[Rfam]
RNA sequence: AUCAAAAUUGCAAGGGUUGACAAUAGGUAAAACAAUAAGUACAGGCUAAAUCACCGUUCUUGCUGUUGAUUCCAUUUGCUAUCCUUACAACCUAUUGAAUUUUAAUUGCGAGAUUUUUUUCCAGAGUCCAAGGUGUAUUGCCACUUUCAAGCUUUGAGGACGGAAUCAACCCCGUC
Numbered sequence: 001a002u003c004a005a006a007a008u009u010g011c012a013a014g015g016g017u018u019g020a021c022a023a024u025a026g027g028u029a030a031a032a033c034a035a036u037a038a039g040u041a042c043a044g045g046c047u048a049a050a051u052c053a054c055c056g057u058u059c060u061u062g063c064u065g066u067u068g069a070u071u072c073c074a075u076u077u078g079c080u081a082u083c084c085u086u087a088c089a090a091c092c093u094a095u096u097g098a099a100u101u102u103u104a105a106u107u108g109c110g111a112g113a114u115u116u117u118u119u120u121c122c123a124g125a126g127u128c129c130a131a132g133g134u135g136u137a138u139u140g141c142c143a144c145u146u147u148c149a150a151g152c153u154u155u156g157a158g159g160a161c162g163g164a165a166u167c168a169a170c171c172c173c174g175u176c
Stems, first nucleotide, its partner, number of pairs: 001114003008090003012086005019079001022076003026072002029067002032064001036062004041057002124155001125153003130147006159176005
Dot-bracket structure: (((....(((.(((((..(..(((.((.((.(...((((.((.............)).)))).).))...)).)))..)..))))).))).....................))).........((((..((((((......))))))...))).)...(((((........)))))
Shown here is a 176-nucleotide RNA sequence from Cylindrospermum sp. NIES-4074, a member of the family "Nitrogen stress-induced RNA 8". Rfam links the family to the GO term heterocyst differentiation. Lineage of the source: Bacteria > Cyanobacteriota > Cyanophyceae > Nostocaceae > Cylindrospermum.